Rfam assigns this 76-nucleotide RNA to the family "dfrA-dnaX RNA". It is one of the family's seed sequences.
[Rfam]
RNA sequence: AUGCCUAAUGAUAGAGCUAUUAAUAUUUCAUCAUAGUUACCUUAAUUUAAUUAUCAAAACGGAACUAUGGUAUAAU
Numbered sequence: 001a002u003g004c005c006u007a008a009u010g011a012u013a014g015a016g017c018u019a020u021u022a023a024u025a026u027u028u029c030a031u032c033a034u035a036g037u038u039a040c041c042u043u044a045a046u047u048u049a050a051u052u053a054u055c056a057a058a059a060c061g062g063a064a065c066u067a068u069g070g071u072a073u074a075a076u
Stems, first nucleotide, its partner, number of pairs: 030071008